Gag/pol translational readthrough site: a 62-nucleotide RNA sequence from Neotoma lepida. A search with the family's covariance model found it, with a score of 68 bits. Taxonomically the source falls in Neotoma (Eukaryota, Opisthokonta, Eumetazoa, Gnathostomata). Pairs were carried over by alignment from the consensus structure, which is taken from published work. A reference for the family is ten Dam et al. (1990), "RNA pseudoknots: translational frameshifting and readthrough on viral RNAs", Virus Genes.
RNA sequence: UAGGGAGGACAGGGCUUGGCUCCCCUCCCCGAGCCUAGGGUAACUUUGAGAGUAGAGGGGAA
Numbered sequence: 001u002a003g004g005g006a007g008g009a010c011a012g013g014g015c016u017u018g019g020c021u022c023c024c025c026u027c028c029c030c031g032a033g034c035c036u037a038g039g040g041u042a043a044c045u046u047u048g049a050g051a052g053u054a055g056a057g058g059g060g061a062a
Stems, first nucleotide, its partner, number of pairs: 008041001010039001012036004016031001018029002022060006